RNA: Ribosomal protein L10 leader
Organism: Mojavia pulchra
RNA sequence: CUAAUUGAAUAGACGAAGCCGGAGACAGCAGGAGCUAAUAGCUUAAAUAUCCUGCCGAGGUGGAAGCUCAAAUUGCUUGAAGUAUUACCUGUAAUAGUGUAAUGACUGCGGCAUCAAGAGUCUUGCUACUAAACCCCGGCUAAGAAAGCUGGGGUUUAUUGUUUGGGUU
Numbered sequence: 001c002u003a004a005u006u007g008a009a010u011a012g013a014c015g016a017a018g019c020c021g022g023a024g025a026c027a028g029c030a031g032g033a034g035c036u037a038a039u040a041g042c043u044u045a046a047a048u049a050u051c052c053u054g055c056c057g058a059g060g061u062g063g064a065a066g067c068u069c070a071a072a073u074u075g076c077u078u079g080a081a082g083u084a085u086u087a088c089c090u091g092u093a094a095u096a097g098u099g100u101a102a103u104g105a106c107u108g109c110g111g112c113a114u115c116a117a118g119a120g121u122c123u124u125g126c127u128a129c130u131a132a133a134c135c136c137c138g139g140c141u142a143a144g145a146a147a148g149c150u151g152g153g154g155u156u157u158a159u160u161g162u163u164u165g166g167g168u169u
Stems, first nucleotide, its partner, number of pairs: 028055006034042003134154008